[Rfam]
RNA sequence: GAUAUUUGAAGUAGAGAUUGUGCUGCUACACACCCUAGGGUCAAAAGAAAUGCGGGGAGGGGCACUCCCGCCAAAUAUC
Numbered sequence: 001g002a003u004a005u006u007u008g009a010a011g012u013a014g015a016g017a018u019u020g021u022g023c024u025g026c027u028a029c030a031c032a033c034c035c036u037a038g039g040g041u042c043a044a045a046a047g048a049a050a051u052g053c054g055g056g057g058a059g060g061g062g063c064a065c066u067c068c069c070g071c072c073a074a075a076u077a078u079c
Stems, first nucleotide, its partner, number of pairs: 001079008011029004020065005031047001032041003052071005
The family of this 79-nucleotide sequence is "skipping-rope RNA".
It is annotated as a small RNA.
It is one of the family's seed sequences.